[Rfam]
RNA sequence: ACAGCUUGGUGGUGGCACUUCCUGAAUUAACGGGCGGUGUGCACGUGAGUGCAUGAAACAAAACACAAGAGGCCCGUUUUUAAACGGGCCUUUUUUU
Numbered sequence: 001a002c003a004g005c006u007u008g009g010u011g012g013u014g015g016c017a018c019u020u021c022c023u024g025a026a027u028u029a030a031c032g033g034g035c036g037g038u039g040u041g042c043a044c045g046u047g048a049g050u051g052c053a054u055g056a057a058a059c060a061a062a063a064c065a066c067a068a069g070a071g072g073c074c075c076g077u078u079u080u081u082a083a084a085c086g087g088g089c090c091u092u093u094u095u096u097u
Base pairs, nucleotide, nucleotide: 009044010043011042015040016039017038018037019036021034022033023032024031071090072089073088074087075086076085077084078082
Source information
This 97-nucleotide RNA sequence from Alteromonas sp. KUL49 belongs to the Rfam family "Tryptophan operon leader". Rfam links the family to the GO terms transcriptional attenuation by ribosome and tryptophan biosynthetic process. Rfam's curators write: At least 6 amino acid operons are known to be regulated by attenuation. In each a leader sequence of 150-200 bp is found upstream of the first gene in the operon. This leader sequence can assume two different secondary structures known as the terminator and the anti-terminator structure. In each case the leader also codes for very short peptide sequence that is rich in the end product amino acid of the operon. The source organism's lineage runs through Bacteria, Pseudomonadati, Alteromonadales, Alteromonadaceae and Alteromonas. A search with the family's covariance model found it, with a score of 50 bits. It is annotated as a cis-regulatory leader. Pairs were carried over by alignment from the consensus structure, which is taken from published work.